[Rfam]
RNA sequence: GGAUGAAGGAACCACCCCGCUCGCGGGUCACCGCGGACGACACCUUGUCGGCGACUCCCCAUCGCCGACGCAGCAGUGCCCUCGCGCACGACAACGCCGGUGGCUCGCACUCCGGCGAUCCUCGCCGAUCGGC
Numbered sequence: 001g002g003a004u005g006a007a008g009g010a011a012c013c014a015c016c017c018c019g020c021u022c023g024c025g026g027g028u029c030a031c032c033g034c035g036g037a038c039g040a041c042a043c044c045u046u047g048u049c050g051g052c053g054a055c056u057c058c059c060c061a062u063c064g065c066c067g068a069c070g071c072a073g074c075a076g077u078g079c080c081c082u083c084g085c086g087c088a089c090g091a092c093a094a095c096g097c098c099g100g101u102g103g104c105u106c107g108c109a110c111u112c113c114g115g116c117g118a119u120c121c122u123c124g125c126c127g128a129u130c131g132g133c
Stems, first nucleotide, its partner, number of pairs: 004124003009120002018039002021036006043073001046070002049067006076089004096116005102110001103108001125132002
The family of this 133-nucleotide sequence from Streptomyces sp. ICBB 8177 is "Streptomyces RNA 5676". By type it is a small RNA. The match comes from Rfam's covariance-model search (63 bits). For this family Rfam cites "Deep sequencing-based identification of small non-coding RNAs in Streptomyces coelicolor" (Vockenhuber et al., RNA Biol, 2011). Rfam's curators write: Identified by deep sequencing of transcriptome at the end of exponential growth phase. Appears longer on northern blot than sequencing transcript. This indicates processing step. Streptomyces specific.